[Rfam]
RNA sequence: UACUGUUUAUGAUGAUUGUUUAAAAAACAAUGGGAAUCUCUCUGAAAAAGAUGAGGAAACUUUUUGAACUGAAACGGUG
Numbered sequence: 001u002a003c004u005g006u007u008u009a010u011g012a013u014g015a016u017u018g019u020u021u022a023a024a025a026a027a028c029a030a031u032g033g034g035a036a037u038c039u040c041u042c043u044g045a046a047a048a049a050g051a052u053g054a055g056g057a058a059a060c061u062u063u064u065u066g067a068a069c070u071g072a073a074a075c076g077g078u079g
Stems, first nucleotide, its partner, number of pairs: 001079007

A member of the RNA family "Small nucleolar RNA SNORD79" from Synaphobranchus kaupii, 79 nucleotides long. Pairs were carried over by alignment from the consensus structure, which was predicted with PFOLD. Clan: SNORD74 clan. Gene Ontology terms of the family: nucleolus and RNA processing. A search with the family's covariance model found it, with a score of 74 bits. The organism belongs to Synaphobranchus, within Eukaryota. snoRNA U79 or Z22 is found in intron 7 of the gas5 gene in humans and is also present in mice.